[Rfam]
RNA sequence: UGCCUUAUCUCUAAACUCAAAGUGGUACCAGCAGUGUGGAUGGUCAUCUGGUCGUUGCCGUGUUUGAGUUCUGGAUCUGGAGCGUA
Numbered sequence: 001u002g003c004c005u006u007a008u009c010u011c012u013a014a015a016c017u018c019a020a021a022g023u024g025g026u027a028c029c030a031g032c033a034g035u036g037u038g039g040a041u042g043g044u045c046a047u048c049u050g051g052u053c054g055u056u057g058c059c060g061u062g063u064u065u066g067a068g069u070u071c072u073g074g075a076u077c078u079g080g081a082g083c084g085u086a
Base pairs, nucleotide, nucleotide: 001086002085003084004082005081006080010075011074012073013072014070015069016068017067018066019065020064021063023060024059025058026057027056028054030052032050033049034048035046036045
Annotation
This 86-nucleotide sequence from Bombyx mori belongs to the Rfam family "mir-2772 microRNA precursor family". Rfam links the family to the GO terms miRNA-mediated post-transcriptional gene silencing and RISC complex. The source organism's lineage runs through Eukaryota, Metazoa, Insecta, Neoptera and Bombyx.